[Rfam]
RNA sequence: AUGCCUUUAACUUAUGACUAAGGAAAUAACAAUUUGGGGUGACGCCUGAUUGCUCACUGCUAAUGUGAGACGUGUUUUUGAGCAGGUAAAGGUUGCCCCUAAGGUUACUCGUCUACUUUGUGGGAUUGUUGGGAGUCAAGAUCUUCCCG
Numbered sequence: 001a002u003g004c005c006u007u008u009a010a011c012u013u014a015u016g017a018c019u020a021a022g023g024a025a026a027u028a029a030c031a032a033u034u035u036g037g038g039g040u041g042a043c044g045c046c047u048g049a050u051u052g053c054u055c056a057c058u059g060c061u062a063a064u065g066u067g068a069g070a071c072g073u074g075u076u077u078u079u080g081a082g083c084a085g086g087u088a089a090a091g092g093u094u095g096c097c098c099c100u101a102a103g104g105u106u107a108c109u110c111g112u113c114u115a116c117u118u119u120g121u122g123g124g125a126u127u128g129u130u131g132g133g134a135g136u137c138a139a140g141a142u143c144u145u146c147c148c149g
Stems, first nucleotide, its partner, number of pairs: 004023004032051001034049005053069005083149001085147002090144005099133002102130002108124005

U12 minor spliceosomal RNA: a 149-nucleotide RNA sequence from Ursus americanus. Taxonomically the source falls in Ursus (Eukaryota, Bilateria, Eutheria, Caniformia). The literature on the family includes a 1997 paper in Trends Biochem Sci by Tarn and Steitz, "Pre-mRNA splicing: the discovery of a new spliceosome doubles the challenge". Pairs were carried over by alignment from the consensus structure. It scores 85 bits against the family's covariance model. Rfam classes the family as a spliceosomal small nuclear RNA.